Overview
The family of this 104-nucleotide sequence from Xenorhabdus bovienii is "TPP riboswitch aptamer (THI element)". Rfam 15.1 lists 16,130 matches to the family in 8,693 species. Pairs were carried over by alignment from the consensus structure, which is taken from published work. Taxonomically the source falls in Xenorhabdus bovienii (Bacteria, Pseudomonadati, Enterobacterales, Xenorhabdus). A reference for the family is Rodionov et al. (2002), "Comparative genomics of thiamin biosynthesis in procaryotes. New genes and regulatory mechanisms", J Biol Chem.
RNA sequence: GCCAUCUCAACGGGGUGCUGCUGCUGUAAAACCGCAUUGCUGAGAAAAACCCGUCGAACCUGAUCCGGCUAGUACCGACGUAGGAAUUUGAGACGCUAAUCAUU
Numbered sequence: 001g002c003c004a005u006c007u008c009a010a011c012g013g014g015g016u017g018c019u020g021c022u023g024c025u026g027u028a029a030a031a032c033c034g035c036a037u038u039g040c041u042g043a044g045a046a047a048a049a050c051c052c053g054u055c056g057a058a059c060c061u062g063a064u065c066c067g068g069c070u071a072g073u074a075c076c077g078a079c080g081u082a083g084g085a086a087u088u089u090g091a092g093a094c095g096c097u098a099a100u101c102a103u104u
Stems, first nucleotide, its partner, number of pairs: 006092005011053004016047001017040002020037001059084004066077003